[Rfam]
RNA sequence: GCUGGUCCUCGGUGGUGGUAUCCGGAUGCGUUCGCCGUCAGGCAAUCGGCAGCCGUGUAUUUCUACUGAUGGCCAGA
Numbered sequence: 001g002c003u004g005g006u007c008c009u010c011g012g013u014g015g016u017g018g019u020a021u022c023c024g025g026a027u028g029c030g031u032u033c034g035c036c037g038u039c040a041g042g043c044a045a046u047c048g049g050c051a052g053c054c055g056u057g058u059a060u061u062u063c064u065a066c067u068g069a070u071g072g073c074c075a076g077a
Base pairs, nucleotide, nucleotide: 002076003075004074005073006072007071009069010068011067012066013065017061018060019059020058021057023055024054025053027051028050
The family of this 77-nucleotide RNA sequence from Leifsonia xyli is "Actino-pnp RNA". It is one of the family's seed sequences. Pairs were carried over by alignment from the consensus structure, which is taken from published work.